[Rfam]
RNA sequence: AAAGGAUAAUGGGGCUACAGCAGAAGUGUUCACAUUGCAGCCCCUGUCAGAUUCUGGUGAAUCUGCGAAUUCUGCU
Numbered sequence: 001a002a003a004g005g006a007u008a009a010u011g012g013g014g015c016u017a018c019a020g021c022a023g024a025a026g027u028g029u030u031c032a033c034a035u036u037g038c039a040g041c042c043c044c045u046g047u048c049a050g051a052u053u054c055u056g057g058u059g060a061a062u063c064u065g066c067g068a069a070u071u072c073u074g075c076u
Stems, first nucleotide, its partner, number of pairs: 011044006019076007026038003048065007
A member of the RNA family "Mammalian CPEB3 ribozyme" from Delphinapterus leucas, 76 nucleotides long.
The source organism's lineage runs through Eukaryota, Deuterostomia, Dipnotetrapodomorpha, Laurasiatheria and Delphinapterus.
The match comes from Rfam's covariance-model search (90 bits).
The mammalian CPEB3 ribozyme is a self cleaving RNA located in the second intron of the CPEB3 gene which belongs to a family of genes regulating messenger RNA polyadenylation.
Pairs were carried over by alignment from the consensus structure, which is taken from published work.